RNA sequence: UAUAACCACUGGAAGUGCCUUUAAAAAGGGCUGAGAUCGGAGUGAAACUUCGGGAUUCCUGAACCUGAUCUAGUUUGUACUAGCGUAGGAAAUGUGGCUUUGCAAUGCG
Numbered sequence: 001u002a003u004a005a006c007c008a009c010u011g012g013a014a015g016u017g018c019c020u021u022u023a024a025a026a027a028g029g030g031c032u033g034a035g036a037u038c039g040g041a042g043u044g045a046a047a048c049u050u051c052g053g054g055a056u057u058c059c060u061g062a063a064c065c066u067g068a069u070c071u072a073g074u075u076u077g078u079a080c081u082a083g084c085g086u087a088g089g090a091a092a093u094g095u096g097g098c099u100u101u102g103c104a105a106u107g108c109g
Stems, first nucleotide, its partner, number of pairs: 006097004011059004016053001017031005038052005064089004070083004
RNA: TPP riboswitch aptamer (THI element)